[Rfam]
RNA sequence: AGAGGUCACAAGUUUGGGGCCACAGCAGAAGUGCUCACGGUUUGGCCCCGUCAGAUUCCAACAAAUAUGCAAAUUCUGCU
Numbered sequence: 001a002g003a004g005g006u007c008a009c010a011a012g013u014u015u016g017g018g019g020c021c022a023c024a025g026c027a028g029a030a031g032u033g034c035u036c037a038c039g040g041u042u043u044g045g046c047c048c049c050g051u052c053a054g055a056u057u058c059c060a061a062c063a064a065a066u067a068u069g070c071a072a073a074u075u076c077u078g079c080u
Stems, first nucleotide, its partner, number of pairs: 016049006024080007031043001033041001052069002055066003
RNA: Mammalian CPEB3 ribozyme